This 137-nucleotide RNA sequence from Rheinheimera salexigens belongs to the Rfam family "Molybdenum/Tungsten riboswitch aptamer (Moco RNA motif)".
RNA sequence: CUUAAUCCAUCACGCCGAGCUACCGGCUCUACCCCUGCACAGCAGGAAUGAACGGCUAGCCGUGGCAAUAUUGCCACCGGGUGCGGCUGGAAACGGCUUCACCUCCCCAUUAGGAAAGGUGUAAUUAAUGUUAGUAG
Dot-bracket structure: .....(.....(((((..((((.(.(.((....(((.......)))...)).).).)))).(((((......))))).(((((.(((((....))))).)))))((......))...))))).....).........
Numbered sequence: 001c002u003u004a005a006u007c008c009a010u011c012a013c014g015c016c017g018a019g020c021u022a023c024c025g026g027c028u029c030u031a032c033c034c035c036u037g038c039a040c041a042g043c044a045g046g047a048a049u050g051a052a053c054g055g056c057u058a059g060c061c062g063u064g065g066c067a068a069u070a071u072u073g074c075c076a077c078c079g080g081g082u083g084c085g086g087c088u089g090g091a092a093a094c095g096g097c098u099u100c101a102c103c104u105c106c107c108c109a110u111u112a113g114g115a116a117a118g119g120u121g122u123a124a125u126u127a128a129u130g131u132u133a134g135u136a137g
Stems, first nucleotide, its partner, number of pairs: 006128001012122005019060004024055001026053001028051002034046003062077005079104005085098005105114002

It scores 72 bits against the family's covariance model. The organism belongs to Rheinheimera, within Bacteria.